[Rfam]
RNA sequence: GCGCUCACAGAGUGGCUGUUAUAUGCGUUAUUAUUCGUUGUCAUAUCACAGCCAGCUUUGAUGAGCGUUG
Numbered sequence: 001g002c003g004c005u006c007a008c009a010g011a012g013u014g015g016c017u018g019u020u021a022u023a024u025g026c027g028u029u030a031u032u033a034u035u036c037g038u039u040g041u042c043a044u045a046u047c048a049c050a051g052c053c054a055g056c057u058u059u060g061a062u063g064a065g066c067g068u069u070g
Stems, first nucleotide, its partner, number of pairs: 005064003008060005013054007021046001024045002
RNA: mir-2 microRNA precursor family